[Rfam]
Shown here is a 97-nucleotide sequence from Python bivittatus, a member of the family "mir-146 microRNA precursor family".

RNA sequence: CUGGCAGUCCCAGGCUCUGAGAACUGGUUUUGAUGGACUAGUUUCCUUUCAGUUUUUUCAGUCCAUAAUAUCCAGUUCUCUAGCUUGGCUGCAUCUG
Numbered sequence: 001c002u003g004g005c006a007g008u009c010c011c012a013g014g015c016u017c018u019g020a021g022a023a024c025u026g027g028u029u030u031u032g033a034u035g036g037a038c039u040a041g042u043u044u045c046c047u048u049u050c051a052g053u054u055u056u057u058u059c060a061g062u063c064c065a066u067a068a069u070a071u072c073c074a075g076u077u078c079u080c081u082a083g084c085u086u087g088g089c090u091g092c093a094u095c096u097g
Stems, first nucleotide, its partner, number of pairs: 010088002013085003020079008035064004
Pairs were carried over by alignment from the consensus structure, which was predicted with WAR. Taxonomically the source falls in Python (Eukaryota, Deuterostomia, Sarcopterygii, Toxicofera).